RNA sequence: AUACAACUGCAUAUUCCUUUUCGUAUAAUUCCGGGGAUCGGCCCGGAAGUCUCUACGAGGUCACCGCAAAUGAUCUAUCUACGGAAAGCGAAAAAGCAUGC
Number, nucleotide and partner (000 for none) at each position: 001a000002u000003a000004c000005a000006a000007c000008u000009g000010c000011a000012u000013a000014u000015u000016c000017c000018u087019u086020u085021u084022c083023g082024u081025a080026u000027a000028a000029u048030u047031c046032c045033g044034g043035g042036g000037a000038u000039c000040g000041g000042c035043c034044c033045g032046g031047a030048a029049g000050u000051c000052u000053c000054u000055a000056c000057g000058a076059g075060g074061u073062c072063a071064c000065c000066g000067c000068a000069a000070a000071u063072g062073a061074u060075c059076u058077a000078u000079c000080u025081a024082c023083g022084g021085a020086a019087a018088g000089c000090g000091a000092a000093a000094a000095a000096g000097c000098a000099u000100g000101c000